[Rfam]
Nucleotides: 047
Base pairs, nucleotide, nucleotide: 001036002035003034008030009029012025014045015044016043017042018041
Number, partner (000 for none) and nucleotide at each position: 001036u002035c003034c004000c005000g006000a007000g008030c009029c010000a011000c012025c013000a014045u015044u016043a017042g018041g019000u020000u021000g022000c023000g024000a025012g026000a027000g028000u029009g030008g031000a032000a033000c034003g035002g036001g037000c038000a039000g040000u041018c042017c043016u044015a045014a046000c047000a